Shown here is a 73-nucleotide sequence from Nesterenkonia cremea, a member of the family "tRNA". Rfam classes the family as a transfer RNA. Rfam's curators write: Transfer RNA (tRNA) molecules are approximately 80 nucleotides in length.
RNA sequence: GCCUCCAUAGCUCAGGGGAUAGAGCGUUGGUUUCCGGUACCAAAGGUCGGAGGUUCGAUUCCUCCUGGGGGCA
Number, nucleotide and partner (000 for none) at each position: 001g072002c071003c070004u069005c068006c067007a066008u000009a000010g025011c024012u023013c022014a000015g000016g000017g000018g000019a000020u000021a000022g013023a012024g011025c010026g000027u043028u042029g041030g040031u039032u000033u000034c000035c000036g000037g000038u000039a031040c030041c029042a028043a027044a000045g000046g000047u000048c000049g065050g064051a063052g062053g061054u000055u000056c000057g000058a000059u000060u000061c053062c052063u051064c050065c049066u007067g006068g005069g004070g003071g002072c001073a000
NCBI's taxonomy places the organism under Bacteria, Bacillati, Micrococcales, Micrococcaceae, Nesterenkonia.